This 105-nucleotide RNA from Luteibacter sp. Sphag1AF belongs to the Rfam family "t44 RNA".
[Rfam]
RNA sequence: GGCCAUCGCUUUAAACGCCACACACGCAUCGGCACCGCCUUCGGGGUGCCCCGCCCUUCAGUGAACCGGGCGGGGUCGAAGCCGGGGAUGCGUGGAGGUCCCAAC
Numbered sequence: 001g002g003c004c005a006u007c008g009c010u011u012u013a014a015a016c017g018c019c020a021c022a023c024a025c026g027c028a029u030c031g032g033c034a035c036c037g038c039c040u041u042c043g044g045g046g047u048g049c050c051c052c053g054c055c056c057u058u059c060a061g062u063g064a065a066c067c068g069g070g071c072g073g074g075g076u077c078g079a080a081g082c083c084g085g086g087g088a089u090g091c092g093u094g095g096a097g098g099u100c101c102c103a104a105c
Stems, first nucleotide, its partner, number of pairs: 023094008035085003039081005048076009
About this RNA
It scores 66 bits against the family's covariance model. Rfam describes the family as follows. This family consists of a number of bacterial RNA genes of between 135 and 170 bases in length. Rfam classes the family as a small RNA.